[Rfam]
RNA sequence: AUAAAAAAACUGCCGAGUUCCCGUCACUGGGAAACGGGGGAACCAUCUAGUCGGGUGAAUUGGCUUUGCUUCACAGGAGCCAUAGGGGAACCUUCUACCGAACCCUCCAGCUAACCUCGUAGGCAUCGGAAGGAGUCACC
Numbered sequence: 001a002u003a004a005a006a007a008a009a010c011u012g013c014c015g016a017g018u019u020c021c022c023g024u025c026a027c028u029g030g031g032a033a034a035c036g037g038g039g040g041a042a043c044c045a046u047c048u049a050g051u052c053g054g055g056u057g058a059a060u061u062g063g064c065u066u067u068g069c070u071u072c073a074c075a076g077g078a079g080c081c082a083u084a085g086g087g088g089a090a091c092c093u094u095c096u097a098c099c100g101a102a103c104c105c106u107c108c109a110g111c112u113a114a115c116c117u118c119g120u121a122g123g124c125a126u127c128g129g130a131a132g133g134a135g136u137c138a139c140c
Stems, first nucleotide, its partner, number of pairs: 011125004018033006034120006045051001053105003061082007085099002088096001
RNA: c-di-AMP riboswitch aptamer (ydaO/yuaA leader)